RNA: THF (Tetrahydrofolate) riboswitch aptamer
RNA sequence: GGGUAGAUAGUUGUGCGUUAAGUGUGAAGGAAACGGAAUGUGGGCCUUCAACGAAAUGUUUUCGAUAUUGAAAACGUGCGAUGCAACUGUCACAUUCACC
Numbered sequence: 001g002g003g004u005a006g007a008u009a010g011u012u013g014u015g016c017g018u019u020a021a022g023u024g025u026g027a028a029g030g031a032a033a034c035g036g037a038a039u040g041u042g043g044g045c046c047u048u049c050a051a052c053g054a055a056a057u058g059u060u061u062u063c064g065a066u067a068u069u070g071a072a073a074a075c076g077u078g079c080g081a082u083g084c085a086a087c088u089g090u091c092a093c094a095u096u097c098a099c100c
Stems, first nucleotide, its partner, number of pairs: 001100001006091010016080003022052002025050006036097005056077009
Dot-bracket structure: (....(((((((((((((...((.((((((.....[[[[[....))))))))...(((((((((....)))))))))))).)))))))))).]]]]]..)